[Rfam]
RNA sequence: GCAAGCCGCCAGGGGUACCCCGCCGAUGCGGGGUUGAGACAGUCCCUUGGAACCUGAUCCGGUUCAAACCGGCGGAGGGAGCGCGGCGUGUCGUCAUC
Numbered sequence: 001g002c003a004a005g006c007c008g009c010c011a012g013g014g015g016u017a018c019c020c021c022g023c024c025g026a027u028g029c030g031g032g033g034u035u036g037a038g039a040c041a042g043u044c045c046c047u048u049g050g051a052a053c054c055u056g057a058u059c060c061g062g063u064u065c066a067a068a069c070c071g072g073c074g075g076a077g078g079g080a081g082c083g084c085g086g087c088g089u090g091u092c093g094u095c096a097u098c
Stems, first nucleotide, its partner, number of pairs: 006086004011047004016041001017034005053078003059072004

Rfam assigns this 98-nucleotide RNA from Longimicrobium terrae to the family "TPP riboswitch aptamer (THI element)". The organism belongs to Longimicrobium, within Bacteria. Rfam links the family to the GO term thiamine pyrophosphate binding. Rfam describes the family as follows. Vitamin B(1) in its active form thiamin pyrophosphate (TPP) is an essential coenzyme that is synthesised by coupling of pyrimidine and thiazole moieties in bacteria. Pairs were carried over by alignment from the consensus structure, which is taken from published work. It scores 64 bits against the family's covariance model.